Rfam assigns this 158-nucleotide RNA sequence from Bacteroides sp. CAG:754 to the family "Bacteroidales-1 6S-Bacteroidales RNA suggested".
Pairs were carried over by alignment from the consensus structure, which is taken from published work.
Rfam classes the family as a small RNA.
The literature on the family includes a 2020 paper in Nat Commun by Ryan et al., "A high-resolution transcriptome map identifies small RNA regulation of metabolism in the gut microbe Bacteroides thetaiotaomicron".
Rfam's curators write: Bacteroidales-1 was first reported in a comparative genomics-based approach of genome and metagenome sequences from Weinberg et al. 2010 In a high-resolution transcriptome map study of Bacteroides thetaiotaomicron, Ryan et al. 2020 report this sRNA as 6S RNA homologue of Bacteroides, in the study they obtain evidence of small product RNAs (pRNAs) related to 6S function.
RNA sequence: GAAACUCUUCAAAUUAAUCUGAUGCACCGAGAAAGCUUCGUUCUUCAAUGGCGGGCCACAUCCUUCGGGACAGCUUUAAGCCGGUGGAUUACAAAGAGGGCGAGCGCUCAAAUCUUGUUCUAUCAGAGUUUCAUCACAUCGUCGGUACGGCUUUCUUA
Numbered sequence: 001g002a003a004a005c006u007c008u009u010c011a012a013a014u015u016a017a018u019c020u021g022a023u024g025c026a027c028c029g030a031g032a033a034a035g036c037u038u039c040g041u042u043c044u045u046c047a048a049u050g051g052c053g054g055g056c057c058a059c060a061u062c063c064u065u066c067g068g069g070a071c072a073g074c075u076u077u078a079a080g081c082c083g084g085u086g087g088a089u090u091a092c093a094a095a096g097a098g099g100g101c102g103a104g105c106g107c108u109c110a111a112a113u114c115u116u117g118u119u120c121u122a123u124c125a126g127a128g129u130u131u132c133a134u135c136a137c138a139u140c141g142u143c144g145g146u147a148c149g150g151c152u153u154u155c156u157u158a
Stems, first nucleotide, its partner, number of pairs: 035105003039102002042100005049093002056087004061070003073081003